[Rfam]
RNA sequence: UUUUCCGCGUUCAGGCUUGUUAAUAACAAGGAAAUUUGCGGAAUUGCCAAUUUUGCCUGUCUAUUCAGCCACGCAGCAAUGGCGUAAGACGUUAUGAAUUUCAGGCAGUUAGCGGGCUGCGGGUUGCAGCCUAACCGGUAAAUGGAAUCUUAUCUGGCGAAAUAACACCCAGAAUAUUCCGUGGACUUAAGCGCACUGUUUUUCCGUUUGAAUUACAGGCCGCCGAUACUUUGCGCCUCCAUGCAAGCGACAACCGUGAGGUUGACGACUUUGCGAAUAGUCACGAGGCCAUCGGUCAAUUCCCGGUCAGCGUCAUCCUGCCCGCAGCUUUGUCGUCAA
Number, nucleotide and partner (000 for none) at each position: 001u000002u000003u043004u042005c041006c040007g039008c038009g000010u000011u000012c000013a000014g000015g000016c031017u030018u029019g000020u000021u000022a000023a000024u000025a000026a000027c000028a000029a018030g017031g016032a000033a000034a000035u000036u000037u000038g008039c007040g006041g005042a004043a003044u000045u000046g000047c000048c000049a000050a000051u000052u000053u108054u107055g106056c105057c104058u103059g102060u000061c000062u000063a000064u098065u097066c096067a095068g000069c000070c000071a092072c091073g090074c000075a000076g083077c082078a000079a000080u000081g000082g077083c076084g000085u000086a000087a000088g000089a000090c073091g072092u071093u000094a000095u067096g066097a065098a064099u000100u000101u000102c059103a058104g057105g056106c055107a054108g053109u000110u000111a000112g000113c000114g330115g329116g328117c327118u326119g325120c324121g323122g322123g321124u320125u000126g000127c000128a000129g000130c000131c000132u309133a000134a307135c306136c305137g304138g303139u000140a000141a000142a000143u000144g180145g179146a178147a177148u176149c000150u000151u000152a000153u173154c172155u171156g170157g169158c000159g000160a000161a000162a000163u000164a000165a000166c000167a000168c000169c157170c156171a155172g154173a153174a000175u000176a148177u147178u146179c145180c144181g000182u000183g000184g000185a000186c000187u000188u000189a000190a000191g000192c000193g220194c219195a000196c218197u217198g216199u215200u000201u000202u212203u211204c210205c000206g000207u000208u000209u000210g204211a203212a202213u000214u000215a199216c198217a197218g196219g194220c193221c000222g296223c295224c294225g293226a292227u000228a000229c000230u000231u000232u000233g000234c000235g289236c288237c287238u286239c285240c000241a000242u000243g000244c000245a000246a000247g000248c267249g266250a000251c264252a263253a262254c261255c260256g000257u000258g000259a000260g255261g254262u253263u252264g251265a000266c249267g248268a000269c000270u000271u000272u000273g000274c000275g000276a000277a000278u000279a000280g000281u000282c000283a000284c000285g239286a238287g237288g236289c235290c000291a000292u226293c225294g224295g223296u222297c000298a000299a000300u000301u000302c000303c138304c137305g136306g135307u134308c000309a132310g000311c000312g000313u000314c000315a000316u000317c000318c000319u000320g124321c123322c122323c121324g120325c119326a118327g117328c116329u115330u114331u000332g000333u000334c000335g000336u000337c000338a000339a000
The family of this 339-nucleotide RNA from Shimwellia blattae is "RNase E 5' UTR element". It is annotated as a cis-regulatory element. The literature on the family includes a 2000 paper in Genes Dev by Diwa et al., "An evolutionarily conserved RNA stem-loop functions as a sensor that directs feedback regulation of RNase E gene expression". Gene Ontology term of the family: regulation of gene expression. Lineage of the source: Bacteria > Pseudomonadota > Gammaproteobacteria > Enterobacteriaceae > Shimwellia blattae. Rfam's curators write: This family represents a conserved element found in the 5' UTR of RNase E mRNA. RNase E is a key regulatory enzyme in the pathway of mRNA degradation in E. coli that is able to auto-regulate the degradation of its own mRNA in response to changes in RNase E activity. This rne 5' UTR element acts as a sensor of cellular RNase E concentration enabling tight regulation of RNase E concentration and synthesis.